[Rfam]
RNA: atpB RNA
RNA sequence: CUGCACCGCGGUUGCUGAUGUGCGACGGAGUCCGCCGCGGUUGCAGCCCACUUGAAGACGUCCAUCGCACCGUGCCCGGCAACGGGUGCGGCCCGAGAACGGGAGAGAACGCUGAGCGUUACAAC
Numbered sequence: 001c002u003g004c005a006c007c008g009c010g011g012u013u014g015c016u017g018a019u020g021u022g023c024g025a026c027g028g029a030g031u032c033c034g035c036c037g038c039g040g041u042u043g044c045a046g047c048c049c050a051c052u053u054g055a056a057g058a059c060g061u062c063c064a065u066c067g068c069a070c071c072g073u074g075c076c077c078g079g080c081a082a083c084g085g086g087u088g089c090g091g092c093c094c095g096a097g098a099a100c101g102g103g104a105g106a107g108a109a110c111g112c113u114g115a116g117c118g119u120u121a122c123a124a125c
Base pairs, nucleotide, nucleotide: 001046002045003044004043005041006040007039008038009037010036011035070091071090072089073088074087075086076085077084078083